[Rfam]
RNA sequence: CCGUGCAGCCGGGGAGUUAGCGGUGCCCUGAACCUGCAAUCCGCUACAGCAGGGGUGAUGCCGAACUGAGGGCGUUCUGUUGUAGAGCUGCCCCUGAUAAGUGAUGUUGACAUCUGGGUCUUGCGCAACAGGAAUCCGUGAACCGUGUCAGGUCGGGAACGAAGCAGCACUAAGCGGAAUCUCCUGUGUGCCGCAAGGCAGCCUGGAUCGAGUUAACUGUCAGGGUAACGUCUAUGGCAUGCGUUCGAAGGGAGGCGCACGG
Numbered sequence: 001c002c003g004u005g006c007a008g009c010c011g012g013g014g015a016g017u018u019a020g021c022g023g024u025g026c027c028c029u030g031a032a033c034c035u036g037c038a039a040u041c042c043g044c045u046a047c048a049g050c051a052g053g054g055g056u057g058a059u060g061c062c063g064a065a066c067u068g069a070g071g072g073c074g075u076u077c078u079g080u081u082g083u084a085g086a087g088c089u090g091c092c093c094c095u096g097a098u099a100a101g102u103g104a105u106g107u108u109g110a111c112a113u114c115u116g117g118g119u120c121u122u123g124c125g126c127a128a129c130a131g132g133a134a135u136c137c138g139u140g141a142a143c144c145g146u147g148u149c150a151g152g153u154c155g156g157g158a159a160c161g162a163a164g165c166a167g168c169a170c171u172a173a174g175c176g177g178a179a180u181c182u183c184c185u186g187u188g189u190g191c192c193g194c195a196a197g198g199c200a201g202c203c204u205g206g207a208u209c210g211a212g213u214u215a216a217c218u219g220u221c222a223g224g225g226u227a228a229c230g231u232c233u234a235u236g237g238c239a240u241g242c243g244u245u246c247g248a249a250g251g252g253a254g255g256c257g258c259a260c261g262g
Base pairs, nucleotide, nucleotide: 001262002261003260004259005258006257008056009055010054011029012028013027014026016024017023018022033053034052035051036050037049061255062254066250067249070246071245072244073243074242076241078239079238080237081236082235083234084233085232089227090226093224094223095222096221097220098219101217102216103214104213105212112208113207114206115205116204117203118202119201120197121196122195123194124193125192126188127187129186130185131184132183133182135178136177137176138175139174145170146169147168148167153162154161155160